The record is a 76-nucleotide RNA sequence from Phascolarctos cinereus, which matches "Small nucleolar RNA SNORD83" in Rfam.
The base pairs follow the family's consensus structure, which was predicted with PFOLD.
Taxonomically the source falls in Phascolarctos (Eukaryota, Deuterostomia, Craniata, Euteleostomi).
By type it is a C/D-box small nucleolar RNA.
The match comes from Rfam's covariance-model search (57 bits).
Its family is annotated with RNA processing and nucleolus in the Gene Ontology.
RNA sequence: GCCAUACAAUAUGUUUUCAGAGACAAAAGCACUCAGUGCUGAGAUGACCUUUCUCUAUUACCUUUGACUGAUGGCA
Numbered sequence: 001g002c003c004a005u006a007c008a009a010u011a012u013g014u015u016u017u018c019a020g021a022g023a024c025a026a027a028a029g030c031a032c033u034c035a036g037u038g039c040u041g042a043g044a045u046g047a048c049c050u051u052u053c054u055c056u057a058u059u060a061c062c063u064u065u066g067a068c069u070g071a072u073g074g075c076a
Stems, first nucleotide, its partner, number of pairs: 001075004029039004